[Rfam]
Nucleotides: 158
Base pairs, nucleotide, nucleotide: 011143012142013141014140018033019032020031021030022029034138035137036136037135038134039133044053045052054123055122056121062096063095064094065093066092067091068090069089099117100116101115102114
Number, partner (000 for none) and nucleotide at each position: 001000g002000g003000g004000c005000c006000g007000c008000c009000u010000c011143c012142g013141c014140u015000g016000a017000g018033u019032c020031c021030g022029g023000c024000g025000a026000c027000c028000g029022c030021c031020g032019g033018a034138g035137c036136c037135g038134g039133g040000g041000a042000c043000c044053c045052a046000c047000g048000a049000c050000c051000u052045u053044g054123g055122g056121g057000u058000g059000a060000a061000u062096c063095g064094g065093u066092c067091c068090g069089u070000a071000c072000g073000a074000g075000c076000g077000c078000g079000a080000c081000g082000c083000g084000c085000c086000c087000g088000c089069a090068c091067g092066g093065a094064c095063c096062g097000u098000a099117g100116g101115g102114c103000g104000g105000c106000c107000u108000u109000c110000c111000g112000a113000a114102g115101c116100c117099c118000g119000a120000a121056c122055c123054c124000g125000a126000c127000a128000g129000c130000u131000a132000a133039c134038c135037c136036g137035g138034u139000a140014g141013g142012c143011g144000g145000u146000c147000c148000a149000c150000g151000g152000a153000a154000g155000g156000a157000g158000c